[Rfam]
RNA sequence: AGGCACCCAAUGUGGAUCAAGAACGGGGCAUUUCGUGAGGGACACCAUUCAAGGAUCUGGCACAGAAGUUAGAACAGAGGAUCGGUCAAUGCGGGAACCUGCUGCGUUUUCCAGGCCUCGGUGAGUGAAUGGCGAUUAUGGGUCAGGAAAUAAGCCAGCAUGAAAUGUUUGUUGAAAGUUUAAAUAAGGCUUUAAAGACACGAGGAGUAAAGGUUUAAAUUAAGAAUUUAUGUCAAUAUUUUGAAUAUAUUAAACAAGUUU
Numbered sequence: 001a002g003g004c005a006c007c008c009a010a011u012g013u014g015g016a017u018c019a020a021g022a023a024c025g026g027g028g029c030a031u032u033u034c035g036u037g038a039g040g041g042a043c044a045c046c047a048u049u050c051a052a053g054g055a056u057c058u059g060g061c062a063c064a065g066a067a068g069u070u071a072g073a074a075c076a077g078a079g080g081a082u083c084g085g086u087c088a089a090u091g092c093g094g095g096a097a098c099c100u101g102c103u104g105c106g107u108u109u110u111c112c113a114g115g116c117c118u119c120g121g122u123g124a125g126u127g128a129a130u131g132g133c134g135a136u137u138a139u140g141g142g143u144c145a146g147g148a149a150a151u152a153a154g155c156c157a158g159c160a161u162g163a164a165a166u167g168u169u170u171g172u173u174g175a176a177a178g179u180u181u182a183a184a185u186a187a188g189g190c191u192u193u194a195a196a197g198a199c200a201c202g203a204g205g206a207g208u209a210a211a212g213g214u215u216u217a218a219a220u221u222a223a224g225a226a227u228u229u230a231u232g233u234c235a236a237u238a239u240u241u242u243g244a245a246u247a248u249a250u251u252a253a254a255c256a257a258g259u260u261u
Stems, first nucleotide, its partner, number of pairs: 006028003012024002033047001035045002077119003085112001090106005126145003130142001133140002151194003154190003201243005207237002211229006
The family of this 261-nucleotide sequence from Octodon degus is "Mason-Pfizer monkey virus packaging signal". Lineage of the source: Eukaryota > Eumetazoa > Teleostomi > Amniota > Octodon. The family has 9 seed sequences and 2,921 matches in Rfam 15.1. Pairs were carried over by alignment from the consensus structure, which was predicted with PFOLD.